Rfam assigns this 116-nucleotide sequence from Roseovarius spongiae to the family "ALIL pseudoknot". On this family, see Mazauric et al., J Biol Chem 2008: "Apical loop-internal loop RNA pseudoknots: a new type of stimulator of -1 translational frameshifting in bacteria". Pairs were carried over by alignment from the consensus structure, which is taken from published work. Rfam 15.1 lists 2,146 matches to the family in 1,098 species.

[Rfam]
RNA sequence: GGCAUAUUUUGCCAUGGCGGAGCUCGACGCCGGUCGAAGUGAUGGUGUCGUUCAUCGAUGCUCAUCGCGCCGAGCACGGGGUCGAGCCGAUCUGCAAGCUGCUGCCGAUCGCCCCG
Dot-bracket structure: ...............((((........)))).............................................(((((......((.((.(((......))).)).)))))))
Numbered sequence: 001g002g003c004a005u006a007u008u009u010u011g012c013c014a015u016g017g018c019g020g021a022g023c024u025c026g027a028c029g030c031c032g033g034u035c036g037a038a039g040u041g042a043u044g045g046u047g048u049c050g051u052u053c054a055u056c057g058a059u060g061c062u063c064a065u066c067g068c069g070c071c072g073a074g075c076a077c078g079g080g081g082u083c084g085a086g087c088c089g090a091u092c093u094g095c096a097a098g099c100u101g102c103u104g105c106c107g108a109u110c111g112c113c114c115c116g
Stems, first nucleotide, its partner, number of pairs: 016031004077116005088111002091108002094105003